[Rfam]
RNA sequence: CCCUUGAUGGGAAAAACAAUAGAUCAUGUGUACAGGUCGUACACAUGAUCUAUUGUUUUUCCCAUCAAGGG
Numbered sequence: 001c002c003c004u005u006g007a008u009g010g011g012a013a014a015a016a017c018a019a020u021a022g023a024u025c026a027u028g029u030g031u032a033c034a035g036g037u038c039g040u041a042c043a044c045a046u047g048a049u050c051u052a053u054u055g056u057u058u059u060u061c062c063c064a065u066c067a068a069g070g071g
Base pairs, nucleotide, nucleotide: 003069004068005067006066007065009063010062011061013059014058017055018054019053020052021051023049024048025047026046027045028044
RNA: mir-965 microRNA precursor family
Organism: Apolygus lucorum